RNA sequence: CCGGGGUCCUUAAGAAAGACCUGUAAACUGCUUGGUCGGGAGAUGAUGGAGGCUGACUCUAGCGGAAUCACAGCCCUUGUGUUGUCUCUGCUGAAUGAUCGUCUUGGAAAGAAUGGCAAGACUACAGUUACUUCCUGUAGGGGAGGUACCUGGAGUCCUAAGCAGUUGCGCAUAGCCCAAGGGGGGAAACCCAGCAGGGAGCAGUGACAAUGUGAUUCAGUUCCAAGGUGGCGGUCUGAGGAGUGAGACAAGGUGCUGCCGUUCGACCAGCUAACUCCCAUCUGU
Numbered sequence: 001c002c003g004g005g006g007u008c009c010u011u012a013a014g015a016a017a018g019a020c021c022u023g024u025a026a027a028c029u030g031c032u033u034g035g036u037c038g039g040g041a042g043a044u045g046a047u048g049g050a051g052g053c054u055g056a057c058u059c060u061a062g063c064g065g066a067a068u069c070a071c072a073g074c075c076c077u078u079g080u081g082u083u084g085u086c087u088c089u090g091c092u093g094a095a096u097g098a099u100c101g102u103c104u105u106g107g108a109a110a111g112a113a114u115g116g117c118a119a120g121a122c123u124a125c126a127g128u129u130a131c132u133u134c135c136u137g138u139a140g141g142g143g144a145g146g147u148a149c150c151u152g153g154a155g156u157c158c159u160a161a162g163c164a165g166u167u168g169c170g171c172a173u174a175g176c177c178c179a180a181g182g183g184g185g186g187a188a189a190c191c192c193a194g195c196a197g198g199g200a201g202c203a204g205u206g207a208c209a210a211u212g213u214g215a216u217u218c219a220g221u222u223c224c225a226a227g228g229u230g231g232c233g234g235u236c237u238g239a240g241g242a243g244u245g246a247g248a249c250a251a252g253g254u255g256c257u258g259c260c261g262u263u264c265g266a267c268c269a270g271c272u273a274a275c276u277c278c279c280a281u282c283u284g285u
Stems, first nucleotide, its partner, number of pairs: 001039003004022005010016002027036003041283005048276002051272005058266002061263005071258004076253003079249002082246002086243004091238001095237001097236006103227007111218004116213003120157004125152003129148008158162001165208005176199003183192003

Annotation
Rfam assigns this 285-nucleotide RNA sequence from Synchytrium microbalum to the family "Metazoan signal recognition particle RNA". By type it is a non-coding RNA gene. NCBI's taxonomy places the organism under Eukaryota, Chytridiomycetes, Synchytriales, Synchytriaceae, Synchytrium. About the family: The signal recognition particle (SRP) is a universally conserved ribonucleoprotein. It is involved in the co-translational targeting of proteins to membranes.